Description
The family of this 111-nucleotide RNA sequence from Ilumatobacter coccineus is "TPP riboswitch aptamer (THI element)". Taxonomically the source falls in Ilumatobacter coccineus (Bacteria, Bacillati, Actinomycetota, Ilumatobacter). Vitamin B(1) in its active form thiamin pyrophosphate (TPP) is an essential coenzyme that is synthesised by coupling of pyrimidine and thiazole moieties in bacteria.
RNA sequence: ACCAACCGACGGGGAGUUCGUGGAACGACGAGCUGAGAGGGUGACACGCUGUCACCGACCCGAGAACCUGAUCCGGAUCAUGCCGGCGUAGGAAGUCGAGAAGCACGUGAA
Dot-bracket structure: ......(((((((..(((((........)))))......(((((((...)))))))..))).....((((..((((......))))..))))..)))).............